[Rfam]
RNA sequence: AUUAUAUUGCUAUUAAUACCUAAGACAGUAACGGGGUUAUUCCCUUAAUUAUGUUACCGAGGAAAAGACUUGUUUUAAAAAACAUUUUUUUGUUUUGUCCUUGGUUUAGUGUUACUAGCCAAGGUUUUUUAUUUUAUUU
Numbered sequence: 001a002u003u004a005u006a007u008u009g010c011u012a013u014u015a016a017u018a019c020c021u022a023a024g025a026c027a028g029u030a031a032c033g034g035g036g037u038u039a040u041u042c043c044c045u046u047a048a049u050u051a052u053g054u055u056a057c058c059g060a061g062g063a064a065a066a067g068a069c070u071u072g073u074u075u076u077a078a079a080a081a082a083c084a085u086u087u088u089u090u091u092g093u094u095u096u097g098u099c100c101u102u103g104g105u106u107u108a109g110u111g112u113u114a115c116u117a118g119c120c121a122a123g124g125u126u127u128u129u130u131a132u133u134u135u136a137u138u139u
Stems, first nucleotide, its partner, number of pairs: 028057006034044003099124008
RNA: Ribosomal protein L10 leader